[Rfam]
RNA sequence: UUCCGAUUAAAACUCCUAGCCUUUGUAUCUAAGUUCGAUGAAUCGAAUAUGAUGCUCUGGCCGUGGUCUAGAACCACCAGGGUGCGUGAUAGAAAUGUCUGCAUCUCCCGUAUUUGGAAAGGUGUGAUUAUGCAGCAACU
Numbered sequence: 001u002u003c004c005g006a007u008u009a010a011a012a013c014u015c016c017u018a019g020c021c022u023u024u025g026u027a028u029c030u031a032a033g034u035u036c037g038a039u040g041a042a043u044c045g046a047a048u049a050u051g052a053u054g055c056u057c058u059g060g061c062c063g064u065g066g067u068c069u070a071g072a073a074c075c076a077c078c079a080g081g082g083u084g085c086g087u088g089a090u091a092g093a094a095a096u097g098u099c100u101g102c103a104u105c106u107c108c109c110g111u112a113u114u115u116g117g118a119a120a121g122g123u124g125u126g127a128u129u130a131u132g133c134a135g136c137a138a139c140u
Stems, first nucleotide, its partner, number of pairs: 006131001012125002015122002019061003025055005033048006063077005080106006088099004107117002
RNA: Molybdenum/Tungsten riboswitch aptamer (Moco RNA motif)
Organism: Providencia heimbachae